[Rfam]
RNA sequence: GCCCGGCUUCUGCGGGGCGCCCGGCCAGGAUGUACACCCUGGCCGGGCGCCCUGCAGAAGCCGGGC
Numbered sequence: 001g002c003c004c005g006g007c008u009u010c011u012g013c014g015g016g017g018c019g020c021c022c023g024g025c026c027a028g029g030a031u032g033u034a035c036a037c038c039c040u041g042g043c044c045g046g047g048c049g050c051c052c053u054g055c056a057g058a059a060g061c062c063g064g065g066c
Stems, first nucleotide, its partner, number of pairs: 001066029031036001
A member of the RNA family "mir-9242 microRNA precursor family" from Fregata magnificens, 66 nucleotides long. It scores 62 bits against the family's covariance model. The base pairs follow the family's consensus structure, which was predicted with RNAalifold.